Background:
mir-2796 microRNA precursor family: a 79-nucleotide sequence from Ignelater luminosus. The base pairs follow the family's consensus structure, which was predicted with RNAalifold. Gene Ontology terms of the family: miRNA-mediated post-transcriptional gene silencing and RISC complex. A search with the family's covariance model found it, with a score of 80 bits.

[Rfam]
RNA sequence: AUAUAAGGGCAGGGGUUUCUUUCGGCCUCCAGCGGAGUAGAGGAUGUUGUAGGCCGGCGGAAACUACUUGCCUUUACAU
Numbered sequence: 001a002u003a004u005a006a007g008g009g010c011a012g013g014g015g016u017u018u019c020u021u022u023c024g025g026c027c028u029c030c031a032g033c034g035g036a037g038u039a040g041a042g043g044a045u046g047u048u049g050u051a052g053g054c055c056g057g058c059g060g061a062a063a064c065u066a067c068u069u070g071c072c073u074u075u076a077c078a079u
Base pairs, nucleotide, nucleotide: 005075006074007073008072010070011069012068013067014065015064016063017062018061019060020059022057023056024055025054026053027052028051030049031048032047